Bacterial RNase P class A: a 381-nucleotide RNA sequence from Haloechinothrix alba. Pairs were carried over by alignment from the consensus structure, which is taken from published work. The family's RNA type in Rfam is ribozyme. The organism belongs to Haloechinothrix, within Bacteria. The literature on the family includes a 1998 paper in Annu Rev Biochem by Frank and Pace, "Ribonuclease P: unity and diversity in a tRNA processing ribozyme".
RNA sequence: CGAGUCGGCAGGGCGACCGCGAGGAGUGAUCCUCGAGGAAAGUCCGGACUCCACAGGGCAGGGUGGUUGCUAACGGCAACCCGGGGCGACCCGAGGGAUCAGUGCCACAGAAAACAGACCGCCGCUCCGUGCGAGCGGUAAGGGUGAAACGGUGGUGUAAGAGACCACCAGCACCCCGGGUGACCGGGGUGGCUAGGUAAACCCCACCCGGAGCAAGGCCAAGAGGGAGCGUGUCGCUCCUGCGCAGGCGUUCGAGGGUUGCCCGCCCGAGGCCUGCGGGUAGGCCGCUGGAGCCUGCCGGCAACGGCAGGCCUAGAUGGAUGGUCGCCACCGUGACCGUUGGUCACGGGACAGAAUCCGGCUUACAUGCCGGCUCGCCCC
Numbered sequence: 001c002g003a004g005u006c007g008g009c010a011g012g013g014c015g016a017c018c019g020c021g022a023g024g025a026g027u028g029a030u031c032c033u034c035g036a037g038g039a040a041a042g043u044c045c046g047g048a049c050u051c052c053a054c055a056g057g058g059c060a061g062g063g064u065g066g067u068u069g070c071u072a073a074c075g076g077c078a079a080c081c082c083g084g085g086g087c088g089a090c091c092c093g094a095g096g097g098a099u100c101a102g103u104g105c106c107a108c109a110g111a112a113a114a115c116a117g118a119c120c121g122c123c124g125c126u127c128c129g130u131g132c133g134a135g136c137g138g139u140a141a142g143g144g145u146g147a148a149a150c151g152g153u154g155g156u157g158u159a160a161g162a163g164a165c166c167a168c169c170a171g172c173a174c175c176c177c178g179g180g181u182g183a184c185c186g187g188g189g190u191g192g193c194u195a196g197g198u199a200a201a202c203c204c205c206a207c208c209c210g211g212a213g214c215a216a217g218g219c220c221a222a223g224a225g226g227g228a229g230c231g232u233g234u235c236g237c238u239c240c241u242g243c244g245c246a247g248g249c250g251u252u253c254g255a256g257g258g259u260u261g262c263c264c265g266c267c268c269g270a271g272g273c274c275u276g277c278g279g280g281u282a283g284g285c286c287g288c289u290g291g292a293g294c295c296u297g298c299c300g301g302c303a304a305c306g307g308c309a310g311g312c313c314u315a316g317a318u319g320g321a322u323g324g325u326c327g328c329c330a331c332c333g334u335g336a337c338c339g340u341u342g343g344u345c346a347c348g349g350g351a352c353a354g355a356a357u358c359c360g361g362c363u364u365a366c367a368u369g370c371c372g373g374c375u376c377g378c379c380c381c
Stems, first nucleotide, its partner, number of pairs: 001377010011366001012329007020035006040364003044361005049213004056264004061209005066080005081095001082093004096204002102202002104198003119143002121139007151169006171193001172191008217286004244277006256268004293312008